[Rfam]
Nucleotides: 103
Base pairs, nucleotide, nucleotide: 001103002102003101004100014094015093016092023039024038025037026036027035042082043081044080045079046078047077048076061075062074063073
Number, partner (000 for none) and nucleotide at each position: 001103g002102g003101g004100a005000u006000a007000u008000g009000a010000u011000g012000a013000g014094u015093g016092g017000u018000c019000u020000a021000u022000a023039c024038u025037c026036a027035c028000a029000a030000u031000a032000u033000a034000u035027g036026u037025g038024g039023g040000a041000u042082g043081a044080g045079u046078g047077u048076u049000c050000g051000c052000c053000c054000c055000a056000u057000c058000g059000c060000c061075u062074g063073g064000u065000u066000a067000c068000g069000a070000c071000a072000c073063u074062c075061g076048g077047g078046c079045a080044c081043u082042c083000c084000c085000u086000c087000u088000g089000u090000u091000u092016c093015c094014a095000c096000c097000u098000g099000a100004u101003c102002c103001c

Rfam assigns this 103-nucleotide RNA from Hibiscus syriacus to the family "Small nucleolar RNA Z279/snoR105/snoR108". By type it is a C/D-box small nucleolar RNA. On this family, see Marker et al., Curr Biol 2002: "Experimental RNomics: identification of 140 candidates for small non-messenger RNAs in the plant Arabidopsis thaliana". From the family's description: This family includes the plant snoRNAs known as Z279, snoR105 and snoR108.